[Rfam]
RNA sequence: GGGCGAUGACGAUUGUCAUGUUUAAGGUCUCGUUCGUCGUAAUGGCUGUGUGAAAUGGCCUUGACGACCAUCCUGAUAUAUCACCACCCAUAUUCCGAGUCC
Number, nucleotide and partner (000 for none) at each position: 001g102002g101003g100004c099005g000006a000007u000008g000009a000010c000011g000012a000013u000014u000015g000016u000017c000018a000019u000020g000021u000022u000023u000024a000025a000026g000027g000028u000029c000030u000031c000032g000033u000034u000035c000036g000037u000038c000039g000040u000041a000042a000043u000044g000045g000046c000047u000048g061049u057050g000051u000052g000053a000054a000055a000056u000057g049058g000059c000060c000061u048062u000063g000064a000065c000066g000067a000068c000069c000070a000071u000072c000073c000074u000075g000076a000077u000078a000079u000080a000081u000082c000083a000084c000085c000086a000087c000088c000089c000090a000091u000092a000093u000094u000095c000096c000097g000098a000099g004100u003101c002102c001
Rfam assigns this 102-nucleotide sequence from Cucurbita maxima to the family "Small nucleolar RNA Z43". The source organism's lineage runs through Eukaryota, Streptophyta, Streptophytina, Euphyllophyta and Cucurbita. The family's consensus secondary structure was predicted with PFOLD. The family's RNA type in Rfam is C/D-box small nucleolar RNA.